Shown here is an 87-nucleotide RNA sequence, a member of the family "RAGATH-21 RNA". The family's consensus secondary structure is taken from published work. The family's RNA type in Rfam is small RNA.

RNA sequence: UGCACAUGUCCUUAAUAGAAACGGGUCCUAAUGCAUAGCAUAAACGGCCUGGAGGUUGAAAAGCGGAUGCAAUUUCCGGCAUGUGCG
Dot-bracket structure: ((((((((((...........((((((..................))))))...(((....)))(((.......)))))))))))))